RNA sequence: GGAGUCAUCAAUUCCGUAGUGCAUUGCAGUUUGUUGUUGCAAUUACUGCAAGCAUUGUGGAAGUGAUAAUACCCU
Numbered sequence: 001g002g003a004g005u006c007a008u009c010a011a012u013u014c015c016g017u018a019g020u021g022c023a024u025u026g027c028a029g030u031u032u033g034u035u036g037u038u039g040c041a042a043u044u045a046c047u048g049c050a051a052g053c054a055u056u057g058u059g060g061a062a063g064u065g066a067u068a069a070u071a072c073c074c075u
Stems, first nucleotide, its partner, number of pairs: 007067004013061005020054003024051005
About this RNA: This 75-nucleotide sequence from Bactrocera dorsalis belongs to the Rfam family "mir-932 microRNA precursor family". A reference for the family is Stark et al. (2007), "Systematic discovery and characterization of fly microRNAs using 12 Drosophila genomes", Genome Res. The base pairs follow the family's consensus structure, which was predicted with RNAalifold. The family has 14 seed sequences and 136 matches in Rfam 15.1. Gene Ontology terms of the family: RISC complex and miRNA-mediated post-transcriptional gene silencing.